[Rfam]
RNA: RAGATH-18 RNA
Nucleotides: 065
Stems, first nucleotide, its partner, number of pairs: 001063004009052005025047003033040002
Number, partner (000 for none) and nucleotide at each position: 001063c002062c003061c004060u005000u006000g007000g008000a009052g010051u011050g012049u013048u014000a015000u016000a017000u018000c019000a020000u021000c022000a023000a024000a025047c026046g027045a028000g029000a030000g031000u032000a033040g034039u035000u036000u037000a038000g039034a040033c041000a042000a043000a044000a045027u046026c047025g048013g049012a050011c051010a052009c053000g054000a055000u056000g057000a058000a059000c060004a061003g062002g063001g064000a065000a